[Rfam]
RNA sequence: ACAUCGUGAUGAUAAAUUUAAAUUUGUUCGAUUAUUUUCAUGAAAGGAUUAGUCACCUCCUACUCAUACUGA
Dot-bracket structure: .....((((.................((..................))...............)))).....
About this RNA: This 72-nucleotide sequence from Salix dunnii belongs to the Rfam family "Small nucleolar RNA Z105". Its family is annotated with nucleolus and RNA processing in the Gene Ontology. The source organism's lineage runs through Eukaryota, Streptophyta, Tracheophyta, Saliceae and Salix. A search with the family's covariance model found it, with a score of 56 bits.